This 79-nucleotide RNA sequence from Galactobacter caseinivorans belongs to the Rfam family "6C RNA".
[Rfam]
RNA sequence: CUGUCGCCGGCCGGUCCCCCAAUGGGCCGGCGACUGAAGCCCCCUUCCUCCCCCCCAAAUUUGGAAGGGGGCUUCCUCG
Numbered sequence: 001c002u003g004u005c006g007c008c009g010g011c012c013g014g015u016c017c018c019c020c021a022a023u024g025g026g027c028c029g030g031c032g033a034c035u036g037a038a039g040c041c042c043c044c045u046u047c048c049u050c051c052c053c054c055c056c057a058a059a060u061u062u063g064g065a066a067g068g069g070g071g072c073u074u075c076c077u078c079g
Stems, first nucleotide, its partner, number of pairs: 003034010036075013
Description: A search with the family's covariance model found it, with a score of 50 bits. On this family, see Weinberg et al., Nucleic Acids Res 2007: "Identification of 22 candidate structured RNAs in bacteria using the CMfinder comparative genomics pipeline". The source organism's lineage runs through Bacteria, Actinomycetota, Actinomycetes, Micrococcaceae and Galactobacter.